[Rfam]
RNA sequence: CGGGCCGAGGGGUGCUGCGACGGAGCGAUCCGCCACGCUCGGCCCGCGAUCCUCGAGACAAGGGCGCCCUCCAUGC
Numbered sequence: 001c002g003g004g005c006c007g008a009g010g011g012g013u014g015c016u017g018c019g020a021c022g023g024a025g026c027g028a029u030c031c032g033c034c035a036c037g038c039u040c041g042g043c044c045c046g047c048g049a050u051c052c053u054c055g056a057g058a059c060a061a062g063g064g065c066g067c068c069c070u071c072c073a074u075g076c
Stems, first nucleotide, its partner, number of pairs: 002045007021032004
Notes
Rfam assigns this 76-nucleotide RNA sequence from Rhodanobacter sp. C06 to the family "SAH (S-adenosyl-L-homocysteine) riboswitch aptamer". Taxonomically the source falls in Rhodanobacter (Bacteria, Pseudomonadati, Lysobacterales, Rhodanobacteraceae). Pairs were carried over by alignment from the consensus structure, which is taken from published work. The family has 52 seed sequences and 1,354 matches in Rfam 15.1. Rfam links the family to the GO terms regulation of gene expression and S-adenosylhomocysteine metabolic process.